[Rfam]
RNA: Small nucleolar RNA SNORD17
RNA sequence: GUGAAAUGAUGAUUCAGUUUAUCCAUUCGCUGAGUGUGCUGCACUGACCUCCUUCCAGGUCUCAGUUCCUGUUCUAGGAACUGGGGCUAUGUAGCCUCCAACUGCCCUGCAAUCUGCGGUGUUCUACUGCGGUCUGCUUGGGUGUUGGCAGACUAUCGGUAAGGAUGGUUGGUCUCAGCAGGGACGGGUCUCUCUGGGUCCCAUCUCUCAAAGAUGAGUGGUGAAAAUCUGAUCAC
Numbered sequence: 001g002u003g004a005a006a007u008g009a010u011g012a013u014u015c016a017g018u019u020u021a022u023c024c025a026u027u028c029g030c031u032g033a034g035u036g037u038g039c040u041g042c043a044c045u046g047a048c049c050u051c052c053u054u055c056c057a058g059g060u061c062u063c064a065g066u067u068c069c070u071g072u073u074c075u076a077g078g079a080a081c082u083g084g085g086g087c088u089a090u091g092u093a094g095c096c097u098c099c100a101a102c103u104g105c106c107c108u109g110c111a112a113u114c115u116g117c118g119g120u121g122u123u124c125u126a127c128u129g130c131g132g133u134c135u136g137c138u139u140g141g142g143u144g145u146u147g148g149c150a151g152a153c154u155a156u157c158g159g160u161a162a163g164g165a166u167g168g169u170u171g172g173u174c175u176c177a178g179c180a181g182g183g184a185c186g187g188g189u190c191u192c193u194c195u196g197g198g199u200c201c202c203a204u205c206u207c208u209c210a211a212a213g214a215u216g217a218g219u220g221g222u223g224a225a226a227a228u229c230u231g232a233u234c235a236c
Stems, first nucleotide, its partner, number of pairs: 010235005017228004023221007030213002034209001038179004043173007050165005055159002058088013091156004096151002104143002106140001109137003114132008181207004186202003190198002